This 54-nucleotide RNA sequence from Coregonus sp. 'balchen' belongs to the Rfam family "UnaL2 LINE 3' element". The match comes from Rfam's covariance-model search (72 bits). The family's consensus secondary structure is taken from published work. By type it is a cis-regulatory element. Gene Ontology term of the family: transposition, RNA-mediated. The organism belongs to Coregonus, within Eukaryota. Rfam describes the family as follows. The eel long interspersed element (LINE) UnaL2 and its partner short interspersed element (SINE) share a conserved 3' tail containing a stem-loop that is critical for their retrotransposition. Presumably, the first step of retrotransposition is the recognition of their 3' tails by UnaL2-encoded reverse transcriptase. The solution structure of a 17-nucleotide RNA derived from the 3' tail of UnaL2 was determined by NMR.
RNA sequence: AAUAAUUAUAAUUGUAAGUCGCUCUGGAUAAGAGCGUCUGCUAAAUGACGUAAA
Numbered sequence: 001a002a003u004a005a006u007u008a009u010a011a012u013u014g015u016a017a018g019u020c021g022c023u024c025u026g027g028a029u030a031a032g033a034g035c036g037u038c039u040g041c042u043a044a045a046u047g048a049c050g051u052a053a054a
Stems, first nucleotide, its partner, number of pairs: 013043001014041003020036006